[Rfam]
RNA sequence: AAAAAGGGCUUCUGUCCUAAGUGGCACAUGCAGGGCAACUUGAUUGCUCUUCAUGCAGAAUGGACAUCAAGAGAUUUCGGAAGCAUAAUUUUUGGUACUUGGGCAGCUGGUGAUCGUUGGUCCCGGUGCCCUA
Numbered sequence: 001a002a003a004a005a006g007g008g009c010u011u012c013u014g015u016c017c018u019a020a021g022u023g024g025c026a027c028a029u030g031c032a033g034g035g036c037a038a039c040u041u042g043a044u045u046g047c048u049c050u051u052c053a054u055g056c057a058g059a060a061u062g063g064a065c066a067u068c069a070a071g072a073g074a075u076u077u078c079g080g081a082a083g084c085a086u087a088a089u090u091u092u093u094g095g096u097a098c099u100u101g102g103g104c105a106g107c108u109g110g111u112g113a114u115c116g117u118u119g120g121u122c123c124c125g126g127u128g129c130c131c132u133a
Stems, first nucleotide, its partner, number of pairs: 008084005013026004027055004032050007056079001058077004101131004106127005112122004